[Rfam]
RNA sequence: AUGAAAGCAAGGGGAGAGACUACACCGUAGCGCCGAAGGAGCAAACAAUGAAUUUGUGAAUCUCUCAGGCAAAAGAACUCUUGCUGGACG
Numbered sequence: 001a002u003g004a005a006a007g008c009a010a011g012g013g014g015a016g017a018g019a020c021u022a023c024a025c026c027g028u029a030g031c032g033c034c035g036a037a038g039g040a041g042c043a044a045a046c047a048a049u050g051a052a053u054u055u056g057u058g059a060a061u062c063u064c065u066c067a068g069g070c071a072a073a074a075g076a077a078c079u080c081u082u083g084c085u086g087g088a089c090g
Base pairs, nucleotide, nucleotide: 006085007084008083009082010081011080012079013078020030021029022028023027032070033069034068035066036065039064040063041062045057046056
About this RNA: Glycine riboswitch aptamer: a 90-nucleotide RNA sequence from Bacillus sp. FJAT-18017. NCBI's taxonomy places the organism under Bacteria, Bacillota, Bacilli, Bacillaceae, Bacillus. Pairs were carried over by alignment from the consensus structure.